Annotation:
The family of this 75-nucleotide sequence from Amycolatopsis mediterranei is "ASpks TB sRNA". Rfam classes the family as an antisense RNA. Pairs were carried over by alignment from the consensus structure, which is taken from published work. A reference for the family is Arnvig and Young (2009), "Identification of small RNAs in Mycobacterium tuberculosis", Mol Microbiol.

RNA sequence: CUUGACCGAGCCCAGCCACAGCGGUUGCUGCGGGUCGCGGCCCUGGCCGUAGGUGGCCAGCAGCGCCUGGACCUC
Numbered sequence: 001c002u003u004g005a006c007c008g009a010g011c012c013c014a015g016c017c018a019c020a021g022c023g024g025u026u027g028c029u030g031c032g033g034g035u036c037g038c039g040g041c042c043c044u045g046g047c048c049g050u051a052g053g054u055g056g057c058c059a060g061c062a063g064c065g066c067c068u069g070g071a072c073c074u075c
Stems, first nucleotide, its partner, number of pairs: 014026004035070002038065002043060003047056003